[Rfam]
RNA sequence: AAAAGGAGCAAUAAUCCCCCUCUUGAUAAAACAAGAGGGCACCAUUGCUUCUUUUUUA
Numbered sequence: 001a002a003a004a005g006g007a008g009c010a011a012u013a014a015u016c017c018c019c020c021u022c023u024u025g026a027u028a029a030a031a032c033a034a035g036a037g038g039g040c041a042c043c044a045u046u047g048c049u050u051c052u053u054u055u056u057u058a
Base pairs, nucleotide, nucleotide: 002054003053004052005051006050007049008048009047010046011045012044015041020037021036022035023034024033025032
Dot-bracket structure: .(((((((((((..(....((((((......))))))...)..)))))))))))....